[Rfam]
The family of this 165-nucleotide RNA from Kingdonia uniflora is "U1 spliceosomal RNA".
Taxonomically the source falls in Kingdonia (Eukaryota, Streptophyta, Streptophytina, Euphyllophyta).
Rfam's curators write: U1 is a small nuclear RNA (snRNA) component of the spliceosome (involved in pre-mRNA splicing). Its 5' end forms complementary base pairs with the 5' splice junction, thus defining the 5' donor site of an intron. There are significant differences in sequence and secondary structure between metazoan and yeast U1 snRNAs, the latter being much longer (568 nucleotides as compared to 164 nucleotides in human).

RNA sequence: UUACAUACCUUGACGGGGUUAUUGGGUGGUCAAGAAAGCACAUAGUCUAGGUUAGCGAUCUCCAUUGCACAUUUAGGAGAAGCGUUCGCCUAAAAUCUCCCCAUGUGGGAGACUGUACUUCUUAAUUUAUGGUAGAGGGGGUACGUGUUUGUGCGCGGCCCCUUA
Numbered sequence: 001u002u003a004c005a006u007a008c009c010u011u012g013a014c015g016g017g018g019u020u021a022u023u024g025g026g027u028g029g030u031c032a033a034g035a036a037a038g039c040a041c042a043u044a045g046u047c048u049a050g051g052u053u054a055g056c057g058a059u060c061u062c063c064a065u066u067g068c069a070c071a072u073u074u075a076g077g078a079g080a081a082g083c084g085u086u087c088g089c090c091u092a093a094a095a096u097c098u099c100c101c102c103a104u105g106u107g108g109g110a111g112a113c114u115g116u117a118c119u120u121c122u123u124a125a126u127u128u129a130u131g132g133u134a135g136a137g138g139g140g141g142u143a144c145g146u147g148u149u150u151g152u153g154c155g156c157g158g159c160c161c162c163u164u165a
Stems, first nucleotide, its partner, number of pairs: 012121002015118001016048006023042002026039002049091003053088001055085003059081001061079001062077002093116001095114001096112003100108002136164005144157004
Source information: The family's consensus secondary structure is taken from published work.